[Rfam]
RNA sequence: CUCUUAUCCCGAGUUGGCGGAGGGACAGGCCCGAAGAAGCCCAGCAACCAUCACCAGUGACAAGGUGAACGGUGCUAACCUGCAAGGUGAACCCACCUUGAACGAUAAGAG
Numbered sequence: 001c002u003c004u005u006a007u008c009c010c011g012a013g014u015u016g017g018c019g020g021a022g023g024g025a026c027a028g029g030c031c032c033g034a035a036g037a038a039g040c041c042c043a044g045c046a047a048c049c050a051u052c053a054c055c056a057g058u059g060a061c062a063a064g065g066u067g068a069a070c071g072g073u074g075c076u077a078a079c080c081u082g083c084a085a086g087g088u089g090a091a092c093c094c095a096c097c098u099u100g101a102a103c104g105a106u107a108a109g110a111g
Stems, first nucleotide, its partner, number of pairs: 001111008013042001016041003022032003026082004043076004048072002051068004083100006
RNA: SAM riboswitch aptamer (S box leader)